[Rfam]
RNA sequence: AAGACUAUACUUUCAGGGAUCAUUUCUAUAGUUUGUAACUUGAGGAAUGAGUUUCUAAAGUGUUGGUCUCGCUAACCACGAUGAAGAGCUGCUGAUACUCUUUCCUGAGCGCGAAGCGAGCGGAGAAUCCUGAUUCUUUCAUGUGUUCUCCGCUUUUGAUGACCGUUCAGCGUCUCCUUCCGGGGACUUUGAGGGAGAGGAGUAUGAUCAGAGUGGU
Number, nucleotide and partner (000 for none) at each position: 001a041002a040003g039004a000005c000006u035007a034008u000009a032010c031011u030012u000013u000014c000015a027016g026017g025018g024019a000020u000021c000022a000023u000024u018025u017026c016027u015028a000029u000030a011031g010032u009033u000034u007035g006036u000037a000038a000039c003040u002041u001042g000043a000044g000045g000046a000047a000048u000049g064050a063051g000052u000053u060054u000055c000056u000057a000058a000059a000060g053061u000062g000063u050064u049065g000066g000067u000068c000069u000070c000071g000072c000073u000074a000075a217076c216077c215078a214079c213080g000081a000082u000083g000084a000085a000086g000087a000088g000089c000090u000091g000092c000093u000094g000095a205096u204097a203098c202099u201100c200101u198102u197103u196104c195105c194106u193107g000108a000109g166110c165111g164112c000113g000114a000115a000116g000117c000118g000119a154120g153121c152122g151123g000124a000125g148126a147127a146128u145129c143130c000131u141132g140133a139134u000135u000136c000137u000138u000139u133140c132141a131142u000143g129144u000145g128146u127147u126148c125149u000150c000151c122152g121153c120154u119155u000156u000157u000158g000159a000160u000161g000162a000163c000164c111165g110166u109167u000168c000169a190170g189171c000172g187173u186174c185175u184176c183177c182178u000179u000180c000181c000182g177183g176184g175185g174186a173187c172188u000189u170190u169191g000192a000193g106194g105195g104196a103197g102198a101199g000200g100201a099202g098203u097204a096205u095206g000207a000208u000209c000210a000211g000212a000213g079214u078215g077216g076217u075

A member of the RNA family "Small nucleolar RNA U3" from Takifugu bimaculatus, 217 nucleotides long. Pairs were carried over by alignment from the consensus structure, which is taken from published work. The organism belongs to Takifugu, within Eukaryota. The literature on the family includes a 1997 paper in Nucleic Acids Res by Zwieb, "The uRNA database". Rfam 15.1 lists 19,072 matches to the family in 1,215 species. From the family's description: Small nucleolar RNAs (snoRNAs) are involved in the processing and modification of rRNA in the nucleolus. There are two main classes of snoRNAs: the box C/D class, and the box H/ACA class. U3 snoRNA is a member of the box C/D class. Indeed, the box C/D element is a subset of the six short sequence elements found in all U3 snoRNAs, namely boxes A, A', B, C, C', and D. The U3 snoRNA secondary structure is characterised by a small 5' domain (with boxes A and A'), and a larger 3' domain (with boxes B, C, C', and D), the two domains being linked by a single-stranded hinge. Boxes B and C form the B/C motif, which appears to be exclusive to U3 snoRNAs, and boxes C' and D form the C'/D motif. The latter is functionally similar to the C/D motifs found in other snoRNAs. The 5' domain and the hinge region act as a pre-rRNA-binding domain. The 3' domain has conserved protein-binding sites. Both the box B/C and box C'/D motifs are sufficient for nuclear retention of U3 snoRNA. The box C'/D motif is also necessary for nucleolar localisation, stability and hyper-methylation of U3 snoRNA. Both box B/C and C'/D motifs are involved in specific protein interactions and are necessary for the rRNA processing functions of U3 snoRNA. Gene Ontology terms of the family: RNA processing and nucleolus.